[Rfam]
RNA sequence: CCCUUAUCUUUUAAAAGUUUCAAGUUGGUCCCUUAUCUUUAUUUUAUGUUUCAAGUUGAUCAUUUCCAUCAAUUUUUUAACUAUUUCCGUUAAAUUUGGACACGUGACAAACUAAUUUGGACAUGUGGUACACUUGGACAGAUGACACGUGUUUAAUUUUAACGGUAACAAUAAAAAAAUUGACGGAAUGAACCAACUUGAAACCUAAAAUAAAGAUAAGGGACCAACUUUAAACUUUUAAAAGAUAAGGGA
Numbered sequence: 001c002c003c004u005u006a007u008c009u010u011u012u013a014a015a016a017g018u019u020u021c022a023a024g025u026u027g028g029u030c031c032c033u034u035a036u037c038u039u040u041a042u043u044u045u046a047u048g049u050u051u052c053a054a055g056u057u058g059a060u061c062a063u064u065u066c067c068a069u070c071a072a073u074u075u076u077u078u079a080a081c082u083a084u085u086u087c088c089g090u091u092a093a094a095u096u097u098g099g100a101c102a103c104g105u106g107a108c109a110a111a112c113u114a115a116u117u118u119g120g121a122c123a124u125g126u127g128g129u130a131c132a133c134u135u136g137g138a139c140a141g142a143u144g145a146c147a148c149g150u151g152u153u154u155a156a157u158u159u160u161a162a163c164g165g166u167a168a169c170a171a172u173a174a175a176a177a178a179a180u181u182g183a184c185g186g187a188a189u190g191a192a193c194c195a196a197c198u199u200g201a202a203a204c205c206u207a208a209a210a211u212a213a214a215g216a217u218a219a220g221g222g223a224c225c226a227a228c229u230u231u232a233a234a235c236u237u238u239u240a241a242a243a244g245a246u247a248a249g250g251g252a
Stems, first nucleotide, its partner, number of pairs: 002250007023229003027225003031221013045207002
RNA: MIR2655 microRNA precursor family
Organism: Trifolium subterraneum